[Rfam]
RNA sequence: GCAAACCGUGCGGGAGAGUCCGCCACCACGCGGCGCCGAAGGGGCAAUUCCUCCCCGGAACCUCUCAGGCACCCGGACCGGACGGUGAAG
Numbered sequence: 001g002c003a004a005a006c007c008g009u010g011c012g013g014g015a016g017a018g019u020c021c022g023c024c025a026c027c028a029c030g031c032g033g034c035g036c037c038g039a040a041g042g043g044g045c046a047a048u049u050c051c052u053c054c055c056c057g058g059a060a061c062c063u064c065u066c067a068g069g070c071a072c073c074c075g076g077a078c079c080g081g082a083c084g085g086u087g088a089a090g
Base pairs, nucleotide, nucleotide: 006085007084008083009082011080012079013078020033021032022031023030035070036069037068038066039065042064043063044062048058049057
The family of this 90-nucleotide RNA sequence from Rhizocola hellebori is "Glycine riboswitch aptamer". The base pairs follow the family's consensus structure. The source organism's lineage runs through Bacteria, Bacillati, Actinomycetota, Actinomycetes and Rhizocola.